[Rfam]
RNA sequence: UCAUAAUUUCGCCAAACCCUUCGUGAGGGGGGGACGGAACACCACGGGUCUUUCUCUGUAAAGACGGCCGGGCUGCCUGG
Numbered sequence: 001u002c003a004u005a006a007u008u009u010c011g012c013c014a015a016a017c018c019c020u021u022c023g024u025g026a027g028g029g030g031g032g033g034a035c036g037g038a039a040c041a042c043c044a045c046g047g048g049u050c051u052u053u054c055u056c057u058g059u060a061a062a063g064a065c066g067g068c069c070g071g072g073c074u075g076c077c078u079g080g
Stems, first nucleotide, its partner, number of pairs: 012037002017032006042072002045070003048065006
c-di-GMP-I riboswitch aptamer: an 80-nucleotide sequence from an Anaerolineales bacterium. The base pairs follow the family's consensus structure, which is taken from published work. Taxonomically the source falls in Anaerolineales (Bacteria, Bacillati, Chloroflexota, Anaerolineae).